[Rfam]
RNA sequence: UGUGGCCUGGUUCAAGUAAUCCAGGAUAGGCUGUAUCCAUUCUAACUCGCCUAUUCUUGGUUACUUGCACUG
Numbered sequence: 001u002g003u004g005g006c007c008u009g010g011u012u013c014a015a016g017u018a019a020u021c022c023a024g025g026a027u028a029g030g031c032u033g034u035a036u037c038c039a040u041u042c043u044a045a046c047u048c049g050c051c052u053a054u055u056c057u058u059g060g061u062u063a064c065u066u067g068c069a070c071u072g
Base pairs, nucleotide, nucleotide: 008072009071010070011069013067014066015065016064017063018062019061020060021059023057024056025055026054027053028052029051030050031049
Shown here is a 72-nucleotide RNA sequence, a member of the family "mir-26 microRNA precursor family". Rfam links the family to the GO terms miRNA-mediated post-transcriptional gene silencing and RISC complex. Pairs were carried over by alignment from the consensus structure, which was predicted with RNAalifold.